The record is a 125-nucleotide sequence from Brassica oleracea, which matches "MIR9563 microRNA precursor family" in Rfam.
[Rfam]
RNA sequence: GGAAUAUAAGAAUCCGUCUCUUAACUUUUAACUACAAAAGGUAAGAACCGACUCUUAAAACUCUUAUUUAAAAACUGGUUCUUAGCUUUUUUAGUUAAAAGUUAAGAGACAAUUUCUUAACUUCU
Numbered sequence: 001g002g003a004a005u006a007u008a009a010g011a012a013u014c015c016g017u018c019u020c021u022u023a024a025c026u027u028u029u030a031a032c033u034a035c036a037a038a039a040g041g042u043a044a045g046a047a048c049c050g051a052c053u054c055u056u057a058a059a060a061c062u063c064u065u066a067u068u069u070a071a072a073a074a075c076u077g078g079u080u081c082u083u084a085g086c087u088u089u090u091u092u093a094g095u096u097a098a099a100a101g102u103u104a105a106g107a108g109a110c111a112a113u114u115u116c117u118u119a120a121c122u123u124c125u
Base pairs, nucleotide, nucleotide: 001125002124003123004122007119008118009117010116011115012114016110017109018108019107020106021105022104023103024102025101026100027099028098029097030096031095032094033093034092036090037089038088039087042084043083044082045081046080047079